[Rfam]
RNA sequence: ACUAACUACGGGUUGGCACCAUGGUGCCUCUCUGAUUUAGCAACUGACUGCUAAAUACGUAGAACCUCUUCUACACGUCAACAAGAAUAGUCUUGUUUCGCCAGCCUUAUUCCGGCUGGCAUUUUUUUAG
Number, nucleotide and partner (000 for none) at each position: 001a000002c000003u000004a000005a000006c000007u000008a000009c000010g000011g000012g000013u000014u000015g028016g027017c026018a025019c024020c000021a000022u000023g000024g019025u018026g017027c016028c015029u000030c000031u000032c000033u000034g000035a056036u055037u054038u053039a052040g051041c050042a000043a000044c000045u000046g000047a000048c000049u000050g041051c040052u039053a038054a037055a036056u035057a000058c000059g000060u000061a000062g000063a000064a000065c000066c000067u000068c000069u000070u000071c000072u000073a000074c000075a000076c000077g000078u000079c000080a000081a096082c095083a094084a093085g092086a091087a000088u000089a000090g000091u086092c085093u084094u083095g082096u081097u000098u000099c000100g120101c119102c118103a117104g116105c115106c114107u000108u000109a000110u000111u000112c000113c000114g106115g105116c104117u103118g102119g101120c100121a000122u000123u000124u000125u000126u000127u000128u000129a000130g000